[Rfam]
RNA sequence: CGGUCGUCUCACUCUAAGUAUGAACGCCAAGCGUAUUGAAAAAAGUUUGGUGUUCUACCUUACAGUGAGCUGUGCG
Numbered sequence: 001c002g003g004u005c006g007u008c009u010c011a012c013u014c015u016a017a018g019u020a021u022g023a024a025c026g027c028c029a030a031g032c033g034u035a036u037u038g039a040a041a042a043a044a045g046u047u048u049g050g051u052g053u054u055c056u057a058c059c060u061u062a063c064a065g066u067g068a069g070c071u072g073u074g075c076g
Stems, first nucleotide, its partner, number of pairs: 006071001008069006015062003025052008